RNA: Bacterial RNase P class A
Organism: Thiocapsa marina
RNA sequence: GGAGUCGGCCGGACAGUCGCGCUCGCCGUUCGCGGCGAGGGAGGAAAGUCCGGGCUCCACAGGGCAGGGUGCCAGGUAACGCCUGGGGGGCGAGAGUCCACGGAAAGUGCCACAGAAAAGAUACCGCCGAUCCCGUCUUCAUGACGGGAGGUAAGGGUGAAAUGGUGCGGUAAGAGCGCACCGCGCUGGUGGCAACAGCAGCGGCAGGGUAAACCCCACCCGGAGCAAGACCAAAUAGGGGGGCAUGCAGCUCCGAGCUGCGGCGCGCGGCCCGCGCGUGCUCCCGGGUAGGUCGCUCGAGGCGUACGGUGACGUACGUCCCAGAUGAAUGGCUGUCCCCGACAGAACCCGGCUUACAGGCCGGCUCCCAGA
Number, nucleotide and partner (000 for none) at each position: 001g368002g367003a366004g365005u364006c363007g362008g361009c360010c359011g357012g337013a336014c335015a334016g333017u332018c331019g000020c041021g000022c039023u038024c037025g036026c035027c034028g033029u000030u000031c000032g000033c028034g027035g026036c025037g024038a023039g022040g000041g020042a000043g000044g000045a000046a355047a354048g353049u000050c352051c351052g350053g349054g348055c225056u224057c223058c222059a000060c000061a000062g273063g272064g271065c270066a000067g221068g220069g219070u218071g217072c086073c085074a084075g083076g082077u000078a000079a000080c000081g000082c076083c075084u074085g073086g072087g101088g099089g098090g097091c096092g000093a000094g000095a000096g091097u090098c089099c088100a000101c087102g216103g215104a000105a000106a000107g214108u213109g210110c209111c208112a000113c000114a000115g000116a000117a000118a000119a000120g000121a000122u000123a000124c156125c155126g152127c151128c150129g000130a000131u149132c148133c147134c146135g145136u144137c000138u000139u000140c000141a000142u000143g000144a136145c135146g134147g133148g132149a131150g128151g127152u126153a000154a000155g125156g124157g000158u000159g000160a000161a000162a000163u000164g182165g181166u180167g179168c178169g177170g000171u000172a000173a000174g000175a000176g000177c169178g168179c167180a166181c165182c164183g205184c203185g202186c201187u200188g199189g000190u197191g196192g000193c000194a000195a000196c191197a190198g000199c188200a187201g186202c185203g184204g000205c183206a000207g000208g111209g110210u109211a000212a000213a108214c107215c103216c102217c071218a070219c069220c068221c067222g058223g057224a056225g055226c000227a000228a000229g294230a293231c292232c291233a000234a000235a000236u000237a000238g000239g285240g284241g283242g282243g281244c280245a000246u000247g000248c000249a000250g000251c000252u000253c000254c000255g000256a000257g000258c000259u000260g000261c000262g000263g000264c278265g277266c276267g275268c274269g000270g065271c064272c063273c062274g268275c267276g266277c265278g264279u000280g244281c243282u242283c241284c240285c239286g000287g000288g000289u000290a000291g232292g231293u230294c229295g000296c000297u000298c000299g000300a000301g320302g319303c318304g317305u316306a315307c314308g313309g000310u000311g000312a000313c308314g307315u306316a305317c304318g303319u302320c301321c000322c000323a000324g000325a000326u000327g000328a000329a000330u000331g018332g017333c016334u015335g014336u013337c012338c000339c000340c000341g000342a000343c000344a000345g000346a000347a000348c054349c053350c052351g051352g050353c048354u047355u046356a000357c011358a000359g010360g009361c008362c007363g006364g005365c004366u003367c002368c001369c000370a000371g000372a000